[Rfam]
A member of the RNA family "RT-6 RNA" from Lactobacillus helveticus, 79 nucleotides long. The family's consensus secondary structure is taken from published work. Taxonomically the source falls in Lactobacillus helveticus (Bacteria, Bacilli, Lactobacillaceae, Lactobacillus). It is one of the family's seed sequences.

RNA sequence: UGCGUUACGAUGAAAUUAGGCGUAGCGGAAAAGGAUUGUUGUCAAUACCUUGUCAUAGACUUUAUUAAUAAAUUCUAUG
Numbered sequence: 001u002g003c004g005u006u007a008c009g010a011u012g013a014a015a016u017u018a019g020g021c022g023u024a025g026c027g028g029a030a031a032a033g034g035a036u037u038g039u040u041g042u043c044a045a046u047a048c049c050u051u052g053u054c055a056u057a058g059a060c061u062u063u064a065u066u067a068a069u070a071a072a073u074u075c076u077a078u079g
Stems, first nucleotide, its partner, number of pairs: 003027007058074002061072004